A member of the RNA family "serC leader", 52 nucleotides long. By type it is a cis-regulatory leader. About the family: This family is a putative regulatory RNA structure that is found upstream of the serC-serA operon in some alpha-proteobacteria. The final stem of the structure overlaps the ribosome binding site of the serC reading frame.
[Rfam]
RNA sequence: CCUUGGGACACUCCUCCCCAACGAGGAGCAACUAUCUGUAAGGAUAGAAGAC
Numbered sequence: 001c002c003u004u005g006g007g008a009c010a011c012u013c014c015u016c017c018c019c020a021a022c023g024a025g026g027a028g029c030a031a032c033u034a035u036c037u038g039u040a041a042g043g044a045u046a047g048a049a050g051a052c
Base pairs, nucleotide, nucleotide: 011028012027013026014025015024016023032047033046034045035044036043037042